[Rfam]
Nucleotides: 221
Stems, first nucleotide, its partner, number of pairs: 014059006060130004065125002068122004073117002148215013162180006
Number, partner (000 for none) and nucleotide at each position: 001000a002000c003000g004000c005000g006000c007000g008000a009000a010000a011000g012000g013000a014059g015058g016057u017056g018055g019054u020000c021000c022000a023000a024000g025000a026000a027000a028000u029000g030000a031000u032000u033000c034000a035000u036000u037000c038000u039000g040000g041000g042000a043000c044000u045000c046000g047000c048000g049000a050000g051000g052000u053000g054019a055018c056017u057016g058015u059014c060130c061129g062128c063127u064000a065125g066124u067000c068122g069121c070120c071119g072000u073117c074116c075000u076000g077000c078000c079000g080000c081000g082000g083000c084000g085000c086000c087000g088000u089000c090000g091000u092000c093000c094000a095000g096000c097000a098000c099000g100000g101000c102000g103000g104000u105000g106000g107000c108000c109000g110000a111000u112000c113000a114000c115000c116074g117073g118000a119071c120070g121069g122068u123000g124066a125065u126000c127063g128062g129061c130060g131000a132000a133000u134000a135000c136000c137000a138000g139000g140000c141000a142000g143000u144000u145000a146000c147000c148215c149214g150213g151212c152211c153210c154209c155208c156207g157206g158205a159204c160203c161000g162180a163179c164178g165177u166176a167175c168000c169000a170000g171000u172000c173000c174000u175167g176166u177165a178164c179163g180162u181000c182000c183000u184000c185000c186000g187000c188000c189000a190000u191000c192000c193000c194000g195000g196000u197000g198000g199000a200000g201000a202000a203160g204159g205158u206157c207156c208155g209154g210153g211152g212151g213150u214149c215148g216000u217000u218000c219000a220000u221000a